The record is a 383-nucleotide RNA from Hyphomonas chukchiensis, which matches "Bacterial RNase P class A" in Rfam.
The family's RNA type in Rfam is ribozyme.
The source organism's lineage runs through Bacteria, Pseudomonadota, Hyphomonadales, Hyphomonadaceae and Hyphomonas.
RNA sequence: CCAGACGGCCGGGCAGCCGCUGGUGGUGGGGUAACCUGCCAUUGGAGGAAAGUCCGGGCUCCAGGGAGACAAGGCGGCGGAUAACUUCCGCCCGGCGCGAGCCGAGGGAAAGUGCCACAGAGAGCAGACCGCCUGCCGCUUCGGUGGCAGGUAAGGGUGAAAGGGUGGGGUAAGAGCCCACCGCGGACCUGGUAACAGGUCUGGCAAGGUAAACCCCGCCUGGAGCAAGACCAAGUAGGGGGCGCACAUGGGAUGUCUUCAGCCCGCGCCCCGGGUGUGUCGCGAGAGGCAGGCUGUGAGGCCUGUCGCAGAGGAAUGGUUGCCGAACCGAUGUCCCGAGAGGGCGCGGGGAACAGAACCCGGCUUACAGGCCGUCUGGUCAU
Numbered sequence: 001c002c003a004g005a006c007g008g009c010c011g012g013g014c015a016g017c018c019g020c021u022g023g024u025g026g027u028g029g030g031g032u033a034a035c036c037u038g039c040c041a042u043u044g045g046a047g048g049a050a051a052g053u054c055c056g057g058g059c060u061c062c063a064g065g066g067a068g069a070c071a072a073g074g075c076g077g078c079g080g081a082u083a084a085c086u087u088c089c090g091c092c093c094g095g096c097g098c099g100a101g102c103c104g105a106g107g108g109a110a111a112g113u114g115c116c117a118c119a120g121a122g123a124g125c126a127g128a129c130c131g132c133c134u135g136c137c138g139c140u141u142c143g144g145u146g147g148c149a150g151g152u153a154a155g156g157g158u159g160a161a162a163g164g165g166u167g168g169g170g171u172a173a174g175a176g177c178c179c180a181c182c183g184c185g186g187a188c189c190u191g192g193u194a195a196c197a198g199g200u201c202u203g204g205c206a207a208g209g210u211a212a213a214c215c216c217c218g219c220c221u222g223g224a225g226c227a228a229g230a231c232c233a234a235g236u237a238g239g240g241g242g243c244g245c246a247c248a249u250g251g252g253a254u255g256u257c258u259u260c261a262g263c264c265c266g267c268g269c270c271c272c273g274g275g276u277g278u279g280u281c282g283c284g285a286g287a288g289g290c291a292g293g294c295u296g297u298g299a300g301g302c303c304u305g306u307c308g309c310a311g312a313g314g315a316a317u318g319g320u321u322g323c324c325g326a327a328c329c330g331a332u333g334u335c336c337c338g339a340g341a342g343g344g345c346g347c348g349g350g351g352a353a354c355a356g357a358a359c360c361c362g363g364c365u366u367a368c369a370g371g372c373c374g375u376c377u378g379g380u381c382a383u
Base pairs, nucleotide, nucleotide: 001379002378003377004376005375006374007373008372009371010370011368012324013323014322015321016320017319018318020045021044022043023042024041025040026039027038028037050366051365052364054363055362056361057360058359059225060224061223062222067259068258072221073220074219075218076217077091078090079089080088081087092106093104094103095102096101107216108215112214113213114210115209116208129156130155131152132151133150134149135148136147137146138145139144164182165181166180167179168178169177183205184203185202186201187200188199189198190197191196229281230280231279239272240271241270242269243268244267250265251264252263254261288307289306290305291304292303293302294301295300
Dot-bracket structure: ((((((((((((((((((.(((((((((........)))))))))....[[[.[[[[[((((....[[...((((((((((.....)))))(((((....)))).)((...(((((............(((((((((((....)))))))))..)).......((((((.......))))))(((((((((....)))))))).)..)))..)))))))))))))...(((.......((((((.....(((.(...]].).))).))))))......)))......((((((((....))))))))..........)))))))..................................]]]]]]]].).))))))))))....